[Rfam]
Rfam assigns this 351-nucleotide RNA from Salinihabitans flavidus to the family "Alphaproteobacteria transfer-messenger RNA".
RNA sequence: GCGCUUGCAAAUCCACCGAACGCUCCCUAUCUUCGAAGUGUCCCCAAGGGGACUAUGGACAUAAACGCGCCCGUAAUAAGCGGAUCGGACCCGGGGGCGGUACCCGGCGGCUCCACCAUAAACCCGGUCAUUGGCGGGACAUGGGGCCGAAAUAGGAUCGACGGACGUCUAAAGGGGUUUGCUUUGUCUCGGUGAGGUACCACCGUUAUCGGUCCGAAAAGUACAAUUGCCAAUGACAAUCGUGCUCCGGUUGCAGUUGCUGCGUAAGCGGUAACAAGACCGAAAUCUAAGCCCUUGCGCCUAGCAGCGUAAGGCGGGGUUCGCAGGCACCUGGCAACAGAAGCCUGCACU
Numbered sequence: 001g002c003g004c005u006u007g008c009a010a011a012u013c014c015a016c017c018g019a020a021c022g023c024u025c026c027c028u029a030u031c032u033u034c035g036a037a038g039u040g041u042c043c044c045c046a047a048g049g050g051g052a053c054u055a056u057g058g059a060c061a062u063a064a065a066c067g068c069g070c071c072c073g074u075a076a077u078a079a080g081c082g083g084a085u086c087g088g089a090c091c092c093g094g095g096g097g098c099g100g101u102a103c104c105c106g107g108c109g110g111c112u113c114c115a116c117c118a119u120a121a122a123c124c125c126g127g128u129c130a131u132u133g134g135c136g137g138g139a140c141a142u143g144g145g146g147c148c149g150a151a152a153u154a155g156g157a158u159c160g161a162c163g164g165a166c167g168u169c170u171a172a173a174g175g176g177g178u179u180u181g182c183u184u185u186g187u188c189u190c191g192g193u194g195a196g197g198u199a200c201c202a203c204c205g206u207u208a209u210c211g212g213u214c215c216g217a218a219a220a221g222u223a224c225a226a227u228u229g230c231c232a233a234u235g236a237c238a239a240u241c242g243u244g245c246u247c248c249g250g251u252u253g254c255a256g257u258u259g260c261u262g263c264g265u266a267a268g269c270g271g272u273a274a275c276a277a278g279a280c281c282g283a284a285a286u287c288u289a290a291g292c293c294c295u296u297g298c299g300c301c302u303a304g305c306a307g308c309g310u311a312a313g314g315c316g317g318g319g320u321u322c323g324c325a326g327g328c329a330c331c332u333g334g335c336a337a338c339a340g341a342a343g344c345c346u347g348c349a350c351u
Stems, first nucleotide, its partner, number of pairs: 040053005057189005067182002069178004081167002085164003091107005108149007190205004196215002199213003317332004323348006
Record summary: Rfam classes the family as a non-coding RNA gene. Rfam describes the family as follows. Bacterial tmRNA, also known as 10Sa RNA or SsrA, is named for its dual tRNA and mRNA-like properties.